Notes:
The record is a 103-nucleotide RNA sequence from Macaca mulatta, which matches "Y RNA" in Rfam. It scores 70 bits against the family's covariance model. Rfam 15.1 lists 26,986 matches to the family in 650 species. The source organism's lineage runs through Eukaryota, Eumetazoa, Euteleostomi, Cercopithecinae and Macaca.

[Rfam]
Nucleotides: 103
Stems, first nucleotide, its partner, number of pairs: 001099004006094003010091002014087001016082006028065003032061002
Number, partner (000 for none) and nucleotide at each position: 001099g002098g003097c004096u005000u006094g007093u008092c009000c010091a011090a012000g013000u014087g015000c016082a017081g018080u019079g020078g021077u022000g023000u024000u025000u026000a027000c028065a029064a030063c031000u032061a033060a034000u035000u036000u037000g038000a039000u040000c041000a042000c043000a044000a045000c046000c047000a048000g049000u050000u051000a052000u053000a054000u055000g056000u057000u058000c059000c060033u061032u062000u063030g064029u065028u066000c067000c068000u069000u070000c071000u072000u073000c074000a075000c076000u077021a078020c079019c080018a081017c082016u083000u084000c085000u086000u087014u088000a089000c090011u091010u092008g093007a094006c095000u096004a097003g098002c099001c100000u101000a102000a103000a